[Rfam]
The family of this 70-nucleotide RNA from Cacepaovirus simiae is "RAGATH-1 hammerhead ribozyme".
RNA sequence: AACUCAGCCGAGGAGAGUAUAAAAUUGUGACUGACGAGACUCGGACGAAAUAUGCAUAGCAUAUCUCACA
Numbered sequence: 001a002a003c004u005c006a007g008c009c010g011a012g013g014a015g016a017g018u019a020u021a022a023a024a025u026u027g028u029g030a031c032u033g034a035c036g037a038g039a040c041u042c043g044g045a046c047g048a049a050a051u052a053u054g055c056a057u058a059g060c061a062u063a064u065c066u067c068a069c070a
Stems, first nucleotide, its partner, number of pairs: 002018004008044005026070005038046001050064006
The match comes from Rfam's covariance-model search (71 bits). Pairs were carried over by alignment from the consensus structure, which is taken from published work. On this family, see Weinberg et al., Nat Chem Biol 2015: "New classes of self-cleaving ribozymes revealed by comparative genomics analysis".